[Rfam]
This 137-nucleotide RNA sequence from Erysipelothrix sp. HDW6C belongs to the Rfam family "glmS glucosamine-6-phosphate activated ribozyme aptamer". Rfam describes the family as follows. This entry contains a glucosamine-6-phosphate activated ribozyme that is found in the mRNA for GlmS. GlmS is an enzyme that uses fructose-6-phosphate and glutamine to generate glucosamine-6-phosphate.
RNA sequence: ACUAUAAUCAUAGCGCCCGGCUUCAAAUGAGUGAAGUGACGAGGAAAGAGGUUUAUCGAAAUAUCGGCGGGUACCUCUUCGGUUUGUGGAAUCGUAAUAUAGAAGGCAAAAUCACAAAUCUUCUAUAAACCACAUUA
Numbered sequence: 001a002c003u004a005u006a007a008u009c010a011u012a013g014c015g016c017c018c019g020g021c022u023u024c025a026a027a028u029g030a031g032u033g034a035a036g037u038g039a040c041g042a043g044g045a046a047a048g049a050g051g052u053u054u055a056u057c058g059a060a061a062u063a064u065c066g067g068c069g070g071g072u073a074c075c076u077c078u079u080c081g082g083u084u085u086g087u088g089g090a091a092u093c094g095u096a097a098u099a100u101a102g103a104a105g106g107c108a109a110a111a112u113c114a115c116a117a118a119u120c121u122u123c124u125a126u127a128a129a130c131c132a133c134a135u136u137a
Stems, first nucleotide, its partner, number of pairs: 020037006047079001048077004056067004080094005098127007